[Rfam]
RNA sequence: CAUGGAGCAGGGUGAAAUUUCCGGCUGGGUUUUCCGGCCGCCUGUCCGCCGGACAACC
Numbered sequence: 001c002a003u004g005g006a007g008c009a010g011g012g013u014g015a016a017a018u019u020u021c022c023g024g025c026u027g028g029g030u031u032u033u034c035c036g037g038c039c040g041c042c043u044g045u046c047c048g049c050c051g052g053a054c055a056a057c058c
Stems, first nucleotide, its partner, number of pairs: 006026003010022002033053006
RNA: sul1 RNA